[Rfam]
RNA sequence: GGAGGGCUGGCCGAGUGGCCCAAGGCGGCGGAUUGCUAAUCCGCAACAGGGGUGACAACCUCUGUCGGGAGUUCGAAUCUCCCGCCCUCCG
Numbered sequence: 001g002g003a004g005g006g007c008u009g010g011c012c013g014a015g016u017g018g019c020c021c022a023a024g025g026c027g028g029c030g031g032a033u034u035g036c037u038a039a040u041c042c043g044c045a046a047c048a049g050g051g052g053u054g055a056c057a058a059c060c061u062c063u064g065u066c067g068g069g070a071g072u073u074c075g076a077a078u079c080u081c082c083c084g085c086c087c088u089c090c091g
Stems, first nucleotide, its partner, number of pairs: 001090007010026003028044005067083005

Rfam assigns this 91-nucleotide RNA from Actinoplanes campanulatus to the family "tRNA". About the family: Transfer RNA (tRNA) molecules are approximately 80 nucleotides in length. Their secondary structure includes four short double-helical elements and three loops (D, anti-codon, and T loops). Further hydrogen bonds mediate the characteristic L-shaped molecular structure. tRNAs have two regions of fundamental functional importance: the anti-codon, which is responsible for specific mRNA codon recognition, and the 3' end, to which the tRNAs corresponding amino acid is attached (by aminoacyl-tRNA synthetases). tRNAs cope with the degeneracy of the genetic code in two manners: having more than one tRNA (with a specific anti-codon) for a particular amino acid; and 'wobble' base-pairing, i.e. permitting non-standard base-pairing at the 3rd anti-codon position. It scores 56 bits against the family's covariance model. Taxonomically the source falls in Actinoplanes (Bacteria, Actinomycetota, Micromonosporales, Micromonosporaceae). Rfam links the family to the GO term triplet codon-amino acid adaptor activity.